[Rfam]
RNA sequence: GCGUCCUGACCUUAUCCUGGCUGUUCCCCUCACCGGAACUGUGGUGGUGGGGCUUGGGGGUGGACGCAGAUCAACUUACUCUCGUGUUAGGAGGGCUGCCCAAGACAUCUGCAAGCCCUUAAAGGCAAGAGAGGACACU
Numbered sequence: 001g002c003g004u005c006c007u008g009a010c011c012u013u014a015u016c017c018u019g020g021c022u023g024u025u026c027c028c029c030u031c032a033c034c035g036g037a038a039c040u041g042u043g044g045u046g047g048u049g050g051g052g053c054u055u056g057g058g059g060g061u062g063g064a065c066g067c068a069g070a071u072c073a074a075c076u077u078a079c080u081c082u083c084g085u086g087u088u089a090g091g092a093g094g095g096c097u098g099c100c101c102a103a104g105a106c107a108u109c110u111g112c113a114a115g116c117c118c119u120u121a122a123a124g125g126c127a128a129g130a131g132a133g134g135a136c137a138c139u
Base pairs, nucleotide, nucleotide: 002066003065004064005063006062010059011058026052027051028049030047031046032045033044079133080132081131082130083129087124088123091120092119093118094117095116096115097114098112099111103108
Background: Rfam assigns this 139-nucleotide RNA sequence from Tachuris rubrigastra to the family "Small Cajal body specific RNA 11". A reference for the family is Darzacq et al. (2002), "Cajal body-specific small nuclear RNAs: a novel class of 2'-O-methylation and pseudouridylation guide RNAs", EMBO J. About the family: scaRNAs are a specific class of small nuclear RNAs which localise to the Cajal bodies and guide the modification of RNA polymerase II transcribed spliceosomal RNAs U1, U2, U4, U5 and U12. ACA57 belongs to the H/ACA box class of guide RNAs as it has the predicted hairpin-hinge-hairpin-tail structure, conserved H/ACA-box motifs and is found associated with GAR1. ACA57 is predicted to guide the pseudouridylation of the U5 spliceosomal RNA at position U43. The family's consensus secondary structure was predicted with RNAalifold. The family's RNA type in Rfam is small Cajal body RNA.